RNA: Mammalian CPEB3 ribozyme
Organism: Acanthosepion pharaonis
RNA sequence: CAAACUUCUUUGGGGACCACAGAAAGGAGCGUUCUUGUCUCGGUCCCUGUCAGAUGAGUUCUAUCAUUUGCCAAUCUUUCC
Numbered sequence: 001c002a003a004a005c006u007u008c009u010u011u012g013g014g015g016a017c018c019a020c021a022g023a024a025a026g027g028a029g030c031g032u033u034c035u036u037g038u039c040u041c042g043g044u045c046c047c048u049g050u051c052a053g054a055u056g057a058g059u060u061c062u063a064u065c066a067u068u069u070g071c072c073a074a075u076c077u078u079u080c081c
Base pairs, nucleotide, nucleotide: 013047014046015045016044017043018042022080023079025078026077027076028075029041031039051070052069053068054067055066056065057064